[Rfam]
RNA: c-di-GMP-I riboswitch aptamer
Organism: Corallincola holothuriorum
RNA sequence: AGCUGAUAAAGGCAAACCAGUUGAAAAGCUGGGACGCAAAGCCACCGAUCUAAGGGGAAACCUAUGACAGCGGGGUUGCCGGU
Dot-bracket structure: ...........((...((((((....))))))...))..((((.(((.((....((....))...))...)))))))......